Overview:
The record is a 328-nucleotide RNA from Regulus satrapa, which matches "7SK RNA" in Rfam. It scores 172 bits against the family's covariance model.

[Rfam]
Nucleotides: 328
Stems, first nucleotide, its partner, number of pairs: 001109003006102006013094002018091002024088002027085005033079001035074002037070003042067007117170002119167001121165002123140004128136002141161002148158002199270003205264002208261006220252001223249001226247003293328001299321001303315004
Number, partner (000 for none) and nucleotide at each position: 001109g002108g003107a004000u005000a006102u007101g008100a009099g010098g011097g012000c013094a014093a015000u016000c017000u018091g019090g020000c021000u022000g023000u024088g025087a026000g027085a028084u029083c030082u031081g032000a033079u034000a035074u036073g037070c038069c039068a040000u041000u042067g043066a044065u045064u046063g047062c048061a049000u050000g051000g052000g053000u054000u055000g056000c057000u058000u059000u060000g061048u062047g063046u064045g065044a066043u067042c068039u069038g070037g071000c072000u073036c074035g075000c076000u077000u078000a079033g080000g081031c082030a083029g084028g085027u086000g087025u088024u089000c090019c091018c092000u093014u094013u095000c096000u097011u098010c099009c100008u101007c102006a103000a104000c105000g106000u107003u108002c109001c110000a111000u112000g113000u114000g115000u116000g117170u118169u119167c120000c121165u122164c123140c124139u125138g126137a127000u128136g129135c130000u131000g132000u133000g134000u135129g136128c137126u138125u139124a140123g141161u142160u143000a144000a145000u146000g147000a148158g149157g150000a151000c152000a153000g154000c155000c156000g157149c158148c159000c160142a161141a162000u163000a164122g165121a166000c167119g168000u169118g170117g171000c172000a173000u174000u175000g176000u177000u178000c179000a180000u181000u182000g183000g184000u185000c186000a187000g188000g189000g190000u191000g192000u193000g194000u195000g196000u197000u198000a199270g200269c201268u202000g203000u204000g205264u206263u207000c208261c209260c210259c211258u212257g213256c214000u215000g216000g217000a218000a219000g220252c221000u222000c223249u224000a225000a226247g227246u228245a229000a230000a231000g232000c233000u234000c235000a236000a237000g238000g239000u240000c241000c242000a243000c244000c245228u246227g247226u248000a249223g250000a251000u252220g253000a254000a255000u256213g257212u258211a259210g260209g261208g262000u263206a264205g265000g266000c267000a268201a269200g270199c271000a272000u273000c274000c275000a276000a277000u278000a279000c280000u281000g282000a283000a284000a285000a286000c287000a288000u289000g290000u291000c292000u293328a294000a295000a296000u297000g298000a299321g300000a301000a302000u303315c304314u305313g306312c307000a308000u309000g310000c311000a312306g313305c314304a315303g316000u317000c318000u319000g320000c321299c322000a323000g324000u325000g326000g327000c328293u

It is annotated as a non-coding RNA gene. From the family's description: 7SK was discovered as an abundant small nuclear RNA in the mid-70s but a possible function has only recently been suggested. Two independent studies have found that 7SK RNA binds the CDK9/cyclin T complex (known as elongation factor P-TEFb).